Source information: This 90-nucleotide sequence from Collichthys lucidus belongs to the Rfam family "Small nucleolar SNORD12/SNORD106". Rfam classes the family as a C/D-box small nucleolar RNA. For this family Rfam cites "RNomics: an experimental approach that identifies 201 candidates for novel, small, non-messenger RNAs in mouse" (Huttenhofer et al., EMBO J, 2001). The source organism's lineage runs through Eukaryota, Craniata, Actinopteri, Percomorphaceae and Collichthys. Clan: SNORD12 clan.
RNA sequence: UGCGUGGUUAAUGAUGUUCCUCUUUCCCCGACUGAUCGACUAUGGUGAUAAAAAAAUGCAAAAUAAGCCAAAUAUUUCUGAAACCACGAU
Numbered sequence: 001u002g003c004g005u006g007g008u009u010a011a012u013g014a015u016g017u018u019c020c021u022c023u024u025u026c027c028c029c030g031a032c033u034g035a036u037c038g039a040c041u042a043u044g045g046u047g048a049u050a051a052a053a054a055a056a057u058g059c060a061a062a063a064u065a066a067g068c069c070a071a072a073u074a075u076u077u078c079u080g081a082a083a084c085c086a087c088g089a090u
Base pairs, nucleotide, nucleotide: 003088004087005086006085007084008083009082